[Rfam]
RNA sequence: UCAUAAUGGGCGGGGGGCUGGAAAGGCCAGCUGAGAUUUAGACACGAUAAGGUCUAGGACCCUUAUAACCUGAUCUGGAUAAUGCCAGCGUAGGUAAGCAUUUUACUCUUUUA
Number, nucleotide and partner (000 for none) at each position: 001u000002c000003a000004u000005a000006a101007u100008g099009g000010g000011c000012g062013g061014g060015g000016g000017g031018c030019u029020g028021g027022a000023a000024a000025g000026g000027c021028c020029a019030g018031c017032u000033g000034a000035g000036a000037u000038u000039u056040a055041g054042a053043c000044a000045c000046g000047a000048u000049a000050a000051g000052g000053u042054c041055u040056a039057g000058g000059a000060c014061c013062c012063u000064u000065a000066u000067a000068a000069c094070c093071u092072g091073a000074u000075c088076u087077g086078g085079a000080u000081a000082a000083u000084g000085c078086c077087a076088g075089c000090g000091u072092a071093g070094g069095u000096a000097a000098g000099c008100a007101u006102u000103u000104u000105a000106c000107u000108c000109u000110u000111u000112u000113a000
Rfam assigns this 113-nucleotide RNA sequence from Desulfosporosinus cupriresistens to the family "TPP riboswitch aptamer (THI element)". The family's consensus secondary structure is taken from published work. A search with the family's covariance model found it, with a score of 68 bits.